[Rfam]
RNA sequence: AAUACAGGGAUGUCUGACCAGGACUCCCUGACCUACACAGGCCUCUGCUCUGGGGGUGAUGGCCAGUCCUGGUAUCUGAGUGAUU
Numbered sequence: 001a002a003u004a005c006a007g008g009g010a011u012g013u014c015u016g017a018c019c020a021g022g023a024c025u026c027c028c029u030g031a032c033c034u035a036c037a038c039a040g041g042c043c044u045c046u047g048c049u050c051u052g053g054g055g056g057u058g059a060u061g062g063c064c065a066g067u068c069c070u071g072g073u074a075u076c077u078g079a080g081u082g083a084u085u
Stems, first nucleotide, its partner, number of pairs: 001084001003082003009076003017073009026062002029059001031057004038052002040049003